[Rfam]
RNA: SAM riboswitch aptamer (S box leader)
RNA sequence: CUCUUAUCAAGAGAGGUGGAGGGAUGUGCCCUAUGAAACCCGGCAACCGUCAGUAUACUGAAACGGUGCCAAUUCACACAAAGCGUCAUGCUUUGAUAGAUGAGAG
Numbered sequence: 001c002u003c004u005u006a007u008c009a010a011g012a013g014a015g016g017u018g019g020a021g022g023g024a025u026g027u028g029c030c031c032u033a034u035g036a037a038a039c040c041c042g043g044c045a046a047c048c049g050u051c052a053g054u055a056u057a058c059u060g061a062a063a064c065g066g067u068g069c070c071a072a073u074u075c076a077c078a079c080a081a082a083g084c085g086u087c088a089u090g091c092u093u094u095g096a097u098a099g100a101u102g103a104g105a106g
Stems, first nucleotide, its partner, number of pairs: 001106008013041001015040003021031003025078004042070004047066002050061003074098001079095006